ASpks TB sRNA: a 75-nucleotide RNA from Saccharopolyspora elongata. Pairs were carried over by alignment from the consensus structure, which is taken from published work.
RNA sequence: CUUCAGCGACCCCAGCCACAAGGGCUUCUCGGCGGUGUGGUGCUGUCCGUAGGUCGCCAGCACGGCUUGGGCCUC
Numbered sequence: 001c002u003u004c005a006g007c008g009a010c011c012c013c014a015g016c017c018a019c020a021a022g023g024g025c026u027u028c029u030c031g032g033c034g035g036u037g038u039g040g041u042g043c044u045g046u047c048c049g050u051a052g053g054u055c056g057c058c059a060g061c062a063c064g065g066c067u068u069g070g071g072c073c074u075c
Stems, first nucleotide, its partner, number of pairs: 014026004033069001038065001043060003047056001049054001
The family's RNA type in Rfam is antisense RNA. Rfam 15.1 lists 9,052 matches to the family in 683 species. NCBI's taxonomy places the organism under Bacteria, Bacillati, Pseudonocardiales, Pseudonocardiaceae, Saccharopolyspora. It scores 63 bits against the family's covariance model.